The family of this 89-nucleotide RNA from Streptomyces sp. MP131-18 is "ZMP/ZTP riboswitch aptamer (pfl RNA motif)".
RNA sequence: GGGCCGGGCCGUGACUGGCGCCUUCAGGUGGAGCACCACCGGGAAGCGGCCCGGCGAUUCCGCCACUGCCGUGCGCCUGGGCACCCCGC
Numbered sequence: 001g002g003g004c005c006g007g008g009c010c011g012u013g014a015c016u017g018g019c020g021c022c023u024u025c026a027g028g029u030g031g032a033g034c035a036c037c038a039c040c041g042g043g044a045a046g047c048g049g050c051c052c053g054g055c056g057a058u059u060c061c062g063c064c065a066c067u068g069c070c071g072u073g074c075g076c077c078u079g080g081g082c083a084c085c086c087c088g089c
Stems, first nucleotide, its partner, number of pairs: 003055010015043002017077005028039004067083004